Overview: The family of this 96-nucleotide RNA from Lacrimispora saccharolytica is "Purine riboswitch aptamer".
RNA sequence: GUAUCAGUAUUCAAAGAAACUUAUAUAUGCUCAUAAUUGGUUGAGCGUCUCUACCAACUACCGUAAUAGUUGCCUAUAAGUUUCCGCACCAUAAUA
Dot-bracket structure: .................((((((((...(((((........)))))........((((((......))))))..))))))))..............
NCBI's taxonomy places the organism under Bacteria, Bacillota, Lachnospiraceae, Lacrimispora, Lacrimispora saccharolytica. The base pairs follow the family's consensus structure, which is taken from published work. It scores 53 bits against the family's covariance model. Riboswitches are metabolite binding domains within certain messenger RNAs that serve as precision sensors for their corresponding targets.